Shown here is a 93-nucleotide RNA from Neobacillus massiliamazoniensis, a member of the family "Selenocysteine transfer RNA". The family is grouped with related families in Rfam's "tRNA clan". The base pairs follow the family's consensus structure, which is taken from published work.
RNA sequence: GGGGCUGAAUGGGGUACUGGUGUCCCCCACAGUCUUCAAAACUGCUUGAGACCUGCGUGCCAGGUCUGGUGGGUUCGAUUCCCACGCAGUCCC
Numbered sequence: 001g002g003g004g005c006u007g008a009a010u011g012g013g014g015u016a017c018u019g020g021u022g023u024c025c026c027c028c029a030c031a032g033u034c035u036u037c038a039a040a041a042c043u044g045c046u047u048g049a050g051a052c053c054u055g056c057g058u059g060c061c062a063g064g065u066c067u068g069g070u071g072g073g074u075u076c077g078a079u080u081c082c083c084a085c086g087c088a089g090u091c092c093c
Base pairs, nucleotide, nucleotide: 001093002092003091004090005089006088007087012027013026014025016023017022029046030044031043032042033041049067050066051065052064053063070084071083072082073081